[Rfam]
RNA sequence: AUCGUUCAUCUCUCUGUGAGAGACGGAAGUAGAGCUUCAGCUCGAAGGAACGCGCC
Numbered sequence: 001a002u003c004g005u006u007c008a009u010c011u012c013u014c015u016g017u018g019a020g021a022g023a024c025g026g027a028a029g030u031a032g033a034g035c036u037u038c039a040g041c042u043c044g045a046a047g048g049a050a051c052g053c054g055c056c
Stems, first nucleotide, its partner, number of pairs: 003052005009023005026053001032043003
Rfam assigns this 56-nucleotide RNA from Phormidium tenue to the family "Glutamine riboswitch aptamer (glnA leader)". Lineage of the source: Bacteria > Oscillatoriophycideae > Oscillatoriales > Oscillatoriaceae > Phormidium tenue. The literature on the family includes a 2011 paper in RNA Biol by Ames and Breaker, "Bacterial aptamers that selectively bind glutamine".